Record summary
A member of the RNA family "Small Cajal body specific RNA 21" from Rousettus aegyptiacus, 140 nucleotides long. Rfam describes the family as follows. scaRNAs are a specific class of small nuclear RNAs which localise to the Cajal bodies and guide the modification of RNA polymerase II transcribed spliceosomal RNAs U1, U2, U4, U5 and U12. ACA68 (SCARNA21) is a member of the H/ACA class of snoRNAs that guide the sites of modification of uridines to pseudouridines. This snoRNA was identified by computational screening and its expression in mouse experimentally verified by Northern blot and primer extension analysis. ACA68 is proposed to guide the pseudouridylation of residue U19 in U12 snRNA. The organism belongs to Rousettus, within Eukaryota.
RNA sequence: UGGCUUGGUUUCCUGGGGGGUGACCUCAGCUUGCUCUACCUCCCCUCAGACAAGCCUAAAGUAAAGAGGCCAGGCUUCCUUCCCCGUGGGAGAGGUGGUUAAGAAAGGAGCCUCUCCCGGACUGUUCUCGCCUCACAUUC
Numbered sequence: 001u002g003g004c005u006u007g008g009u010u011u012c013c014u015g016g017g018g019g020g021u022g023a024c025c026u027c028a029g030c031u032u033g034c035u036c037u038a039c040c041u042c043c044c045c046u047c048a049g050a051c052a053a054g055c056c057u058a059a060a061g062u063a064a065a066g067a068g069g070c071c072a073g074g075c076u077u078c079c080u081u082c083c084c085c086g087u088g089g090g091a092g093a094g095g096u097g098g099u100u101a102a103g104a105a106a107g108g109a110g111c112c113u114c115u116c117c118c119g120g121a122c123u124g125u126u127c128u129c130g131c132c133u134c135a136c137a138u139u140c
Base pairs, nucleotide, nucleotide: 002056003055004054005053006052007051015044016043017042018041019040020039021038022037066134067133068132069131070130072128073127074126079120080119088113089112090111